[Rfam]
Background
A member of the RNA family "mir-9242 microRNA precursor family" from Myotis myotis, 65 nucleotides long. The match comes from Rfam's covariance-model search (69 bits). The organism belongs to Myotis, within Eukaryota. The base pairs follow the family's consensus structure, which was predicted with RNAalifold. Gene Ontology terms of the family: RISC complex and miRNA-mediated post-transcriptional gene silencing.
RNA sequence: GGCCACCCUCUGUGGGGUGAUCGAUGGGGGGGGCUCCACAAUUGAUUGCCCCACAGAGGGAGGCC
Dot-bracket structure: ((((.((((((((((((((((((((.(.(((...))).).)))))))))))))))))))).))))